A member of the RNA family "Group II catalytic intron D1-D4-7" from Hydrogenophaga sp. BPS33, 146 nucleotides long.
On this family, see Lehmann and Schmidt, Crit Rev Biochem Mol Biol 2003: "Group II introns: structure and catalytic versatility of large natural ribozymes".
It scores 48 bits against the family's covariance model.
The pairing is the family consensus, mapped onto this sequence.
Group II introns are found in rRNA, tRNA and mRNA of organelles in fungi, plants and protists, and also in mRNA in bacteria.
Its family is annotated with Group II intron splicing in the Gene Ontology.
Lineage of the source: Bacteria > Pseudomonadota > Betaproteobacteria > Burkholderiales > Hydrogenophaga.
The family has 244 seed sequences and 1,296 matches in Rfam 15.1.

RNA sequence: CCACGUCUGGAACGACGUGUCCUCGUCCGCACAUGCGUCUGGAGUAAUCCGGGAGUGUGAAGCUGUGGAUAAACAUCCUGAGCCGCAAGGCUCACAGGCCAUGCGCGAGCAUGGUCCAACCUUCGAAGCAAGCCAGAAGGAGGAUG
Numbered sequence: 001c002c003a004c005g006u007c008u009g010g011a012a013c014g015a016c017g018u019g020u021c022c023u024c025g026u027c028c029g030c031a032c033a034u035g036c037g038u039c040u041g042g043a044g045u046a047a048u049c050c051g052g053g054a055g056u057g058u059g060a061a062g063c064u065g066u067g068g069a070u071a072a073a074c075a076u077c078c079u080g081a082g083c084c085g086c087a088a089g090g091c092u093c094a095c096a097g098g099c100c101a102u103g104c105g106c107g108a109g110c111a112u113g114g115u116c117c118a119a120c121c122u123u124c125g126a127a128g129c130a131a132g133c134c135a136g137a138a139g140g141a142g143g144a145u146g
Base pairs, nucleotide, nucleotide: 002019003018004017005016006015007014027068028067029066030065031064032059033058034057035056036055038053039052040051041050042049043048079094080093081092082091083090084089097117098116103110104109121139122138123137124136